Glycine riboswitch aptamer: an 87-nucleotide RNA sequence from Thauera aminoaromatica. A search with the family's covariance model found it, with a score of 69 bits. Lineage of the source: Bacteria > Pseudomonadati > Betaproteobacteria > Rhodocyclales > Thauera.

RNA sequence: GCGCGACACGCGGGAGAGAACUCCUCGAUGGAGUCGCCGAAGGCGCAACCCCCGGAACCGCUCAGGCAAAAGGACCGCGUGCGCAGC
Numbered sequence: 001g002c003g004c005g006a007c008a009c010g011c012g013g014g015a016g017a018g019a020a021c022u023c024c025u026c027g028a029u030g031g032a033g034u035c036g037c038c039g040a041a042g043g044c045g046c047a048a049c050c051c052c053c054g055g056a057a058c059c060g061c062u063c064a065g066g067c068a069a070a071a072g073g074a075c076c077g078c079g080u081g082c083g084c085a086g087c
Stems, first nucleotide, its partner, number of pairs: 007081007020034004036067003039063002043061003049055002